Nucleotides: 130
Stems, first nucleotide, its partner, number of pairs: 004121003009117002018039009043073002046070002049067006076089004093113004098108003122129002
Number, partner (000 for none) and nucleotide at each position: 001000a002000g003000a004121u005120g006119g007000a008000a009117g010116a011000a012000a013000c014000a015000c016000c017000c018039c019038g020037u021036c022035u023034g024033c025032g026031g027000a028000a029000g030000u031026c032025c033024g034023c035022g036021g037020g038019c039018g040000a041000c042000a043073c044072u045000u046070u047069g048000c049067c050066g051065g052064u053063g054062a055000a056000u057000c058000c059000c060000c061000a062054u063053c064052a065051c066050c067049g068000g069047u070046a071000c072044a073043g074000c075000a076089g077088u078087g079086c080000c081000c082000u083000c084000g085000c086079g087078c088077a089076c090000a091000g092000c093113g094112c095111c096110g097000a098108a099107g100106c101000c102000g103000a104000a105000g106100g107099c108098u109000c110096c111095g112094g113093c114000a115000a116010u117009c118000c119006u120005c121004g122129c123128c124000g125000a126000u127000c128123g129122g130000u

A member of the RNA family "Streptomyces RNA 5676" from Actinacidiphila glaucinigra, 130 nucleotides long. Rfam's curators write: Identified by deep sequencing of transcriptome at the end of exponential growth phase. Appears longer on northern blot than sequencing transcript. The literature on the family includes a 2011 paper in RNA Biol by Vockenhuber et al., "Deep sequencing-based identification of small non-coding RNAs in Streptomyces coelicolor". The pairing is the family consensus, mapped onto this sequence.